[Rfam]
RNA sequence: GGUUUCCAUUGGUGUAAAUCCAAUCACCUAAAUUUGAGGUGAAAAGCAAUUCCCCAUAGGUAGUAAAUAGUUAUCCAUUAAGCGGAGGAAAUGGUAU
Numbered sequence: 001g002g003u004u005u006c007c008a009u010u011g012g013u014g015u016a017a018a019u020c021c022a023a024u025c026a027c028c029u030a031a032a033u034u035u036g037a038g039g040u041g042a043a044a045a046g047c048a049a050u051u052c053c054c055c056a057u058a059g060g061u062a063g064u065a066a067a068u069a070g071u072u073a074u075c076c077a078u079u080a081a082g083c084g085g086a087g088g089a090a091a092u093g094g095u096a097u
Stems, first nucleotide, its partner, number of pairs: 009023004052087001054085002056078002059075006
RNA: Plastid-rps12 3UTR RNA